[Rfam]
RNA: Plastid-psbA-1 3UTR RNA
Organism: Mikania micrantha
Nucleotides: 126
Stems, first nucleotide, its partner, number of pairs: 009033005074126004079121001081119006089111002092109005
Number, partner (000 for none) and nucleotide at each position: 001000u002000g003000g004000a005000u006000a007000u008000a009033u010032c011031c012030a013029u014000a015000u016000a017000u018000c019000u020000c021000u022000a023000a024000c025000u026000c027000a028000a029013a030012u031011g032010g033009a034000u035000a036000a037000g038000a039000c040000u041000u042000u043000g044000g045000u046000c047000u048000g049000a050000u051000u052000g053000u054000a055000u056000a057000g058000g059000a060000g061000u062000u063000a064000u065000u066000g067000a068000a069000c070000u071000a072000a073000a074126a075125a076124a077123g078000a079121a080000g081119c082118a083117a084116u085115a086114g087000c088000u089111u090110c091000c092109c093108u094107c095106u096105u097000g098000u099000u100000u101000u102000a103000u104000c105096a106095a107094g108093a109092g110090g111089g112000c113000g114086u115085u116084a117083u118082u119081g120000a121079u122000c123077c124076u125075u126074u